Notes:
The family of this 120-nucleotide RNA is "LOOT RNA". It is annotated as a small RNA.
RNA sequence: GACCUAACCCUUAUAGUUUUCACUCUAAGGCAUGGUUAAAAAGACGAGUAAAGCAUAAAAAACCCUCACGGGAUUGCUUUACUCGCCAUAUCGAGAAAUCGGUAUGCUCGCGCAAGCGGG
Numbered sequence: 001g002a003c004c005u006a007a008c009c010c011u012u013a014u015a016g017u018u019u020u021c022a023c024u025c026u027a028a029g030g031c032a033u034g035g036u037u038a039a040a041a042a043g044a045c046g047a048g049u050a051a052a053g054c055a056u057a058a059a060a061a062a063c064c065c066u067c068a069c070g071g072g073a074u075u076g077c078u079u080u081a082c083u084c085g086c087c088a089u090a091u092c093g094a095g096a097a098a099u100c101g102g103u104a105u106g107c108u109c110g111c112g113c114a115a116g117c118g119g120g
Stems, first nucleotide, its partner, number of pairs: 001037004009030005015024003045085011061074001063072003087106008107120005